[Rfam]
RNA sequence: GACGAGUCGAGAAAAACGCAUGGUGCGUAUUUUGAGAUAGAGGGCAUCCGGCUUAACUGCCAGACGCGGGAAGCGUCGAUGCUGACACACCCUUGAUGUGAACGAGAAGGAGUCACG
Dot-bracket structure: .....(((.((((..((((.....)))).))))..)))....((((((.(((......))).(((((.....)))))))))))(((.....(((.........))).....)))...
The record is a 117-nucleotide sequence from Lactobacillus equicursoris, which matches "COG3610-DE RNA" in Rfam. Rfam's curators put it in the seed alignment. The source organism's lineage runs through Bacteria, Bacillati, Lactobacillales, Lactobacillaceae and Lactobacillus equicursoris. Rfam classes the family as a small RNA.